[Rfam]
mir-202 microRNA precursor family: a 76-nucleotide RNA from Daphoenositta chrysoptera. The family has 23 seed sequences and 673 matches in Rfam 15.1. Lineage of the source: Eukaryota > Teleostomi > Aves > Telluraves > Daphoenositta. The family's consensus secondary structure was predicted with RNAalifold.

RNA sequence: UUGUUCCUUUUUCCUAUGCAUAUACUUCUUUGAGAAUUGCUUCUAAAGAGGUAUAGGGCAUGGGAAAACGGGGCAG
Numbered sequence: 001u002u003g004u005u006c007c008u009u010u011u012u013c014c015u016a017u018g019c020a021u022a023u024a025c026u027u028c029u030u031u032g033a034g035a036a037u038u039g040c041u042u043c044u045a046a047a048g049a050g051g052u053a054u055a056g057g058g059c060a061u062g063g064g065a066a067a068a069c070g071g072g073g074c075a076g
Stems, first nucleotide, its partner, number of pairs: 010067010021055003025051008